The record is a 167-nucleotide part of an RNA from Notodromas monacha, which matches "Eukaryotic small subunit ribosomal RNA" in Rfam.
RNA sequence: CCGCCCGUCGCUACUACCGAUUGAAUGAUCUAGUGAGGACUUCGAACUGGAGCCUUUGUGACCCUCGGGUCGCGUUGGUUUUCUGGAAAGAUGUCCUAACUGUAUCAUUUAGAGGAAGUAAAAGUCGUAACAAGGUUUCCGUAGGUGAACCUGCGGAAGGAUCACUG
Numbered sequence: 001c002c003g004c005c006c007g008u009c010g011c012u013a014c015u016a017c018c019g020a021u022u023g024a025a026u027g028a029u030c031u032a033g034u035g036a037g038g039a040c041u042u043c044g045a046a047c048u049g050g051a052g053c054c055u056u057u058g059u060g061a062c063c064c065u066c067g068g069g070u071c072g073c074g075u076u077g078g079u080u081u082u083c084u085g086g087a088a089a090g091a092u093g094u095c096c097u098a099a100c101u102g103u104a105u106c107a108u109u110u111a112g113a114g115g116a117a118g119u120a121a122a123a124g125u126c127g128u129a130a131c132a133a134g135g136u137u138u139c140c141g142u143a144g145g146u147g148a149a150c151c152u153g154c155g156g157a158a159g160g161a162u163c164a165c166u167g
Stems, first nucleotide, its partner, number of pairs: 001134001003131001006127002009124001012120004017115002021111001023110007031102004037096004042091002047086005052079003057074001059072004136159010